[Rfam]
RNA sequence: CUGACUAUGCCUCCCCGCAUCCCCUAGGGCAUUGGUGUAAAGCUGGAGACCCACUGCCCCAGGUGCUGCUGGGGGUUGUAGU
Numbered sequence: 001c002u003g004a005c006u007a008u009g010c011c012u013c014c015c016c017g018c019a020u021c022c023c024c025u026a027g028g029g030c031a032u033u034g035g036u037g038u039a040a041a042g043c044u045g046g047a048g049a050c051c052c053a054c055u056g057c058c059c060c061a062g063g064u065g066c067u068g069c070u071g072g073g074g075g076u077u078g079u080a081g082u
Stems, first nucleotide, its partner, number of pairs: 009076003013073003017069003021065001023063003027059005033053003037050002

Rfam assigns this 82-nucleotide sequence from Pan troglodytes to the family "mir-324 microRNA precursor family".
Rfam's curators put it in the seed alignment.
The source organism's lineage runs through Eukaryota, Chordata, Sarcopterygii, Amniota and Pan.